[Rfam]
RNA sequence: CCAUAAAAUUGAAUUGCCGCUCGUAUAAUGGCAGGAAUUGGCCUGCGAGUCUCUACCCGGUCACCGGAAAUGACCGGACUACGAGUGAAUGCGUCUGUUUU
Dot-bracket structure: .................((((((((...(.(((((......))))).)........(((((((.......)))))))..))))))))..............

Notes: This 101-nucleotide RNA from Paenibacillus sp. J2TS4 belongs to the Rfam family "Purine riboswitch aptamer". The organism belongs to Paenibacillus, within Bacteria.